[Rfam]
The record is a 132-nucleotide sequence from Paraburkholderia phytofirmans, which matches "Group II catalytic intron D1-D4-7" in Rfam. The source organism's lineage runs through Bacteria, Pseudomonadota, Burkholderiales, Paraburkholderia and Paraburkholderia phytofirmans.

RNA sequence: CCGCCCGUGUCACCGGGCGAGUCUAGGAGUCUGAAUAAAGAGCGACUCUGACAAUGUAACGAAGCAUCGCAAGAUGCGGGGUAUCAAUCGCGAGAGGCGUACCCUUCUGGCAGCCACACGCCGGAUGAGUGC
Numbered sequence: 001c002c003g004c005c006c007g008u009g010u011c012a013c014c015g016g017g018c019g020a021g022u023c024u025a026g027g028a029g030u031c032u033g034a035a036u037a038a039a040g041a042g043c044g045a046c047u048c049u050g051a052c053a054a055u056g057u058a059a060c061g062a063a064g065c066a067u068c069g070c071a072a073g074a075u076g077c078g079g080g081g082u083a084u085c086a087a088u089c090g091c092g093a094g095a096g097g098c099g100u101a102c103c104c105u106u107c108u109g110g111c112a113g114c115c116a117c118a119c120g121c122c123g124g125a126u127g128a129g130u131g132c
Stems, first nucleotide, its partner, number of pairs: 002019006027048005032039001064077005079104004088095002106125006
Rfam 15.1 lists 1,296 matches to the family in 705 species. About the family: Group II introns are found in rRNA, tRNA and mRNA of organelles in fungi, plants and protists, and also in mRNA in bacteria.